[Rfam]
RNA sequence: AGCCGAAGGGCAGCUGACGGUCCCUCAAGGGGCUGAGGAAACUCCACCCAUCAUACAGAACCGUGGUGCCGUGAGGCAUCAGCUGAGAGGCUGGACCCUGGAGCAGAAACGACACGUCUCCUGAUGGAUGAUAAUGAAGCUUCACCCUCAAGGAGCAGACUGACACCAGGAGGACCGGUGAAACGGCCAUUCCACGGGAUGCAAGGACAAAUGCUGCCGGUGAUUACUGUAGGAGGCAGAGGUAGUCCGCCCAGAUGAAUGCUGCCGAAACAGAAGGUGGGUUACUCUCGGCA
Numbered sequence: 001a002g003c004c005g006a007a008g009g010g011c012a013g014c015u016g017a018c019g020g021u022c023c024c025u026c027a028a029g030g031g032g033c034u035g036a037g038g039a040a041a042c043u044c045c046a047c048c049c050a051u052c053a054u055a056c057a058g059a060a061c062c063g064u065g066g067u068g069c070c071g072u073g074a075g076g077c078a079u080c081a082g083c084u085g086a087g088a089g090g091c092u093g094g095a096c097c098c099u100g101g102a103g104c105a106g107a108a109a110c111g112a113c114a115c116g117u118c119u120c121c122u123g124a125u126g127g128a129u130g131a132u133a134a135u136g137a138a139g140c141u142u143c144a145c146c147c148u149c150a151a152g153g154a155g156c157a158g159a160c161u162g163a164c165a166c167c168a169g170g171a172g173g174a175c176c177g178g179u180g181a182a183a184c185g186g187c188c189a190u191u192c193c194a195c196g197g198g199a200u201g202c203a204a205g206g207a208c209a210a211a212u213g214c215u216g217c218c219g220g221u222g223a224u225u226a227c228u229g230u231a232g233g234a235g236g237c238a239g240a241g242g243u244a245g246u247c248c249g250c251c252c253a254g255a256u257g258a259a260u261g262c263u264g265c266c267g268a269a270a271c272a273g274a275a276g277g278u279g280g281g282u283u284a285c286u287c288u289c290g291g292c293a
Stems, first nucleotide, its partner, number of pairs: 002292005007286002009266006018035005040283003044280005049201004054231005061197005066079005080093005094192002099189003115177002118172006125165001205248004214239005

About this RNA: The family of this 293-nucleotide RNA from Methanothermobacter thermautotrophicus is "Archaeal RNase P". Rfam classes the family as a ribozyme. From the family's description: Ribonuclease P (RNase P) is a ubiquitous endoribonuclease, found in archaea, bacteria and eukarya as well as chloroplasts and mitochondria. Its best characterised activity is the generation of mature 5'-ends of tRNAs by cleaving the 5'-leader elements of precursor-tRNAs. Rfam's curators put it in the seed alignment. Rfam links the family to the GO terms tRNA processing, ribonuclease P activity and multimeric ribonuclease P complex. The base pairs follow the family's consensus structure, which is taken from published work. The family is grouped with related families in Rfam's "RNaseP clan". Lineage of the source: Archaea > Methanobacteriati > Methanobacteriota > Methanobacteriaceae > Methanothermobacter.